The family of this 60-nucleotide RNA from Canis lupus is "mir-148/mir-152 microRNA precursor family". Gene Ontology terms of the family: miRNA-mediated post-transcriptional gene silencing and RISC complex.
RNA sequence: AAAGUUCUGAGACACUCCGACUCUGAAUAUGAUAGAAGUCAGUGCACUACAGAACUUUGU
Numbered sequence: 001a002a003a004g005u006u007c008u009g010a011g012a013c014a015c016u017c018c019g020a021c022u023c024u025g026a027a028u029a030u031g032a033u034a035g036a037a038g039u040c041a042g043u044g045c046a047c048u049a050c051a052g053a054a055c056u057u058u059g060u
Stems, first nucleotide, its partner, number of pairs: 001058009013044004019040004